[Rfam]
RNA: MIR8024 microRNA precursor family
Organism: Solanum tuberosum
RNA sequence: UUGGAGGAUUUGAAGUCUUCAACUUGCAUACUUAAAGGAUUAGAAGACUCAACUUUCAUACUUGGUUGAAUUUGGAAACAUCAACU
Numbered sequence: 001u002u003g004g005a006g007g008a009u010u011u012g013a014a015g016u017c018u019u020c021a022a023c024u025u026g027c028a029u030a031c032u033u034a035a036a037g038g039a040u041u042a043g044a045a046g047a048c049u050c051a052a053c054u055u056u057c058a059u060a061c062u063u064g065g066u067u068g069a070a071u072u073u074g075g076a077a078a079c080a081u082c083a084a085c086u
Base pairs, nucleotide, nucleotide: 001084002083003082004081006079009076010075011074012073013072014071017068019065020064021063025058026057028055032052033051036049037048